RNA sequence: UCGUUAAGUUAUAACGUGAUAGAUGGAGUGUCACGUCAUCACGUCUCGUCAUACACACUUCAUUGUCACAUCAUCACCUCCAAUGACGUGACAAUAACAUGUCAAUGAUUAGAUGUGAUGACGUGACACUUCACUUGCCACAUCAUCAUAUAACGAAA
Dot-bracket structure: ((((((.((.((.(.(((.(((.(((((((((((((((((((((((.(((((..(((.............((((........)))).............)))..))))).))))))))))))))))))))))).))).))).).)).)).))))))..